The family of this 34-nucleotide RNA from Canis lupus is "Iron response element I". Rfam links the family to the GO term response to iron ion. It is annotated as a cis-regulatory element. The literature on the family includes a 1987 paper in Science by Hentze et al., "Identification of the iron-responsive element for the translational regulation of human ferritin mRNA".

RNA sequence: UGUUCCUGCUUCAACAGUGCUUGGACGGAACCCG
Numbered sequence: 001u002g003u004u005c006c007u008g009c010u011u012c013a014a015c016a017g018u019g020c021u022u023g024g025a026c027g028g029a030a031c032c033c034g
Stems, first nucleotide, its partner, number of pairs: 001034002003030004008026001010025005015019001
The base pairs follow the family's consensus structure, which is taken from published work.